[Rfam]
RNA sequence: CCUCCUCGAUCUGCUGCGGGCAGAUGAAGUGGAUGUGGCUGUCGAUGCCGCCGGCCGUGACGAUGUUGCCCUCGGCCGCGAUGACCUCGGUGCCCGGGCCGAUCACGAUGUCCACGCCGGGUUGCACAUCGGGGUUGCCGGCCUUGCCGAUGGCGGCGAUGCGCCCAUUCUUGAUGCCGAUGUCCGCCUUGACGAUGCCCCAGUGGUCCAGGAUCAGCGCGUUGGUCAGCACGCAGUCGACGGCGCCACCGGCCGUCGGGCCGCUGCCUGUGCCGUCUCGCGUGCGCUGGCUUUGGGCCAUGCCGUCGCGGAUG
Numbered sequence: 001c002c003u004c005c006u007c008g009a010u011c012u013g014c015u016g017c018g019g020g021c022a023g024a025u026g027a028a029g030u031g032g033a034u035g036u037g038g039c040u041g042u043c044g045a046u047g048c049c050g051c052c053g054g055c056c057g058u059g060a061c062g063a064u065g066u067u068g069c070c071c072u073c074g075g076c077c078g079c080g081a082u083g084a085c086c087u088c089g090g091u092g093c094c095c096g097g098g099c100c101g102a103u104c105a106c107g108a109u110g111u112c113c114a115c116g117c118c119g120g121g122u123u124g125c126a127c128a129u130c131g132g133g134g135u136u137g138c139c140g141g142c143c144u145u146g147c148c149g150a151u152g153g154c155g156g157c158g159a160u161g162c163g164c165c166c167a168u169u170c171u172u173g174a175u176g177c178c179g180a181u182g183u184c185c186g187c188c189u190u191g192a193c194g195a196u197g198c199c200c201c202a203g204u205g206g207u208c209c210a211g212g213a214u215c216a217g218c219g220c221g222u223u224g225g226u227c228a229g230c231a232c233g234c235a236g237u238c239g240a241c242g243g244c245g246c247c248a249c250c251g252g253c254c255g256u257c258g259g260g261c262c263g264c265u266g267c268c269u270g271u272g273c274c275g276u277c278u279c280g281c282g283u284g285c286g287c288u289g290g291c292u293u294u295g296g297g298c299c300a301u302g303c304c305g306u307c308g309c310g311g312a313u314g
Stems, first nucleotide, its partner, number of pairs: 001314001003312001005310001007308003012158006018076001022072002030053003034050002037048001040045001057069003078147001081144001083142001085140001090138002092135004096130002098125002101123004107117001164297004171290003175286002178282001185221003189217003223280002225277001230272002234270003
Overview:
Rfam assigns this 314-nucleotide RNA from Comamonas serinivorans to the family "5' ureB small RNA". Gene Ontology term of the family: negative regulation of gene expression. For this family Rfam cites "Helicobacter pylori 5'ureB-sRNA, a cis-encoded antisense small RNA, negatively regulates ureAB expression by transcription termination" (Wen et al., J Bacteriol, 2013). A search with the family's covariance model found it, with a score of 110 bits.